[Rfam]
RNA sequence: GGUCAUGAGUGACAGCACCGCAAGCCCCGGCUGGCUGUCCGGCAACCCUCCGUCCGUGGCGGGGUGCCCCGGGUGAAGACCAGGUCGCACGGCAGAGACGCCGUACGGCAAGCGCGGACC
Numbered sequence: 001g002g003u004c005a006u007g008a009g010u011g012a013c014a015g016c017a018c019c020g021c022a023a024g025c026c027c028c029g030g031c032u033g034g035c036u037g038u039c040c041g042g043c044a045a046c047c048c049u050c051c052g053u054c055c056g057u058g059g060c061g062g063g064g065u066g067c068c069c070c071g072g073g074u075g076a077a078g079a080c081c082a083g084g085u086c087g088c089a090c091g092g093c094a095g096a097g098a099c100g101c102c103g104u105a106c107g108g109c110a111a112g113c114g115c116g117g118a119c120c
Base pairs, nucleotide, nucleotide: 001081002080003079004078009040011039012038013037014036015035016034023032024031041068042067043066046064047063048062050059051058084109085108086107087106089104090103091102092101093100
RNA: SAM (S-adenosyl methionine) riboswitch aptamer